[Rfam]
The family of this 55-nucleotide RNA sequence from Actinidia chinensis is "Plastid-rps18 3UTR RNA". The organism belongs to Actinidia chinensis, within Eukaryota.
RNA sequence: UGCAAGUAUUUUACGAUUAAGAAGCAUCGCUCUUGUACAGAUCAUGUAUUCAUCU
Numbered sequence: 001u002g003c004a005a006g007u008a009u010u011u012u013a014c015g016a017u018u019a020a021g022a023a024g025c026a027u028c029g030c031u032c033u034u035g036u037a038c039a040g041a042u043c044a045u046g047u048a049u050u051c052a053u054c055u
Stems, first nucleotide, its partner, number of pairs: 018035005025029001